Ascomycota telomerase RNA: a 218-nucleotide part of an RNA from Tolypocladium ophioglossoides. It is annotated as a non-coding RNA gene. The family has 4 seed sequences and 475 matches in Rfam 15.1. Its Rfam clan is "Telomerase clan". It scores 358 bits against the family's covariance model. A reference for the family is Qi et al. (2013), "The common ancestral core of vertebrate and fungal telomerase RNAs", Nucleic Acids Res.
RNA sequence: UCCCUCACAGUUUCCCGACUCUCGUUUUCCGCAAGGAAUGUCUAUCGCAGACCCCCCUCCCAGGCUGUCGGACACAAUAUGCCGCUCCCGAGCCUGUAUCAGGACCUCGUUGUAUGCCGCACUCCGAUUUAUUGUGCCCCUCGCCGUCGGCAACUCGGCCACAGACGGCACGGCCCAGCGGGGGGAACGAGUUUCGGAACUUAACCCUAAGUAUAUAC
Numbered sequence: 001u002c003c004c005u006c007a008c009a010g011u012u013u014c015c016c017g018a019c020u021c022u023c024g025u026u027u028u029c030c031g032c033a034a035g036g037a038a039u040g041u042c043u044a045u046c047g048c049a050g051a052c053c054c055c056c057c058u059c060c061c062a063g064g065c066u067g068u069c070g071g072a073c074a075c076a077a078u079a080u081g082c083c084g085c086u087c088c089c090g091a092g093c094c095u096g097u098a099u100c101a102g103g104a105c106c107u108c109g110u111u112g113u114a115u116g117c118c119g120c121a122c123u124c125c126g127a128u129u130u131a132u133u134g135u136g137c138c139c140c141u142c143g144c145c146g147u148c149g150g151c152a153a154c155u156c157g158g159c160c161a162c163a164g165a166c167g168g169c170a171c172g173g174c175c176c177a178g179c180g181g182g183g184g185g186a187a188c189g190a191g192u193u194u195c196g197g198a199a200c201u202u203a204a205c206c207c208u209a210a211g212u213a214u215a216u217a218c
Stems, first nucleotide, its partner, number of pairs: 009201003015197004